[Rfam]
RNA sequence: AAUAGGAAAAUGACAAAUCUGAUUUUUCCUCCCGAUUUUUAGUAUUUCUAAUUGAAUUUGAAAAAAUAGGAAAAAGUUGAAAAUCAGGAGAAAAAAAUCUGAUUUGUCAUUCUUCUAUU
Number, nucleotide and partner (000 for none) at each position: 001a119002a118003u117004a116005g115006g114007a113008a000009a111010a110011u109012g108013a107014c106015a105016a104017a103018u102019c101020u000021g099022a098023u096024u095025u094026u093027u092028c000029c090030u089031c088032c087033c000034g085035a084036u083037u082038u081039u080040u000041a078042g077043u000044a000045u074046u073047u072048c000049u000050a000051a000052u000053u000054g000055a000056a000057u000058u000059u000060g000061a000062a000063a000064a000065a000066a000067u000068a000069g000070g000071a000072a047073a046074a045075a000076g000077u042078u041079g000080a039081a038082a037083a036084u035085c034086a000087g032088g031089a030090g029091a000092a027093a026094a025095a024096a023097a000098u022099c021100u000101g019102a018103u017104u016105u015106g014107u013108c012109a011110u010111u009112c000113u007114u006115c005116u004117a003118u002119u001
Rfam assigns this 119-nucleotide RNA from Gossypium raimondii to the family "MIR7504 microRNA precursor family". Rfam 15.1 lists 7,343 matches to the family in 61 species. Rfam links the family to the GO terms RISC complex and miRNA-mediated post-transcriptional gene silencing. Taxonomically the source falls in Gossypium (Eukaryota, Spermatophyta, Magnoliopsida, Malvales). The family's consensus secondary structure was predicted with RNAalifold.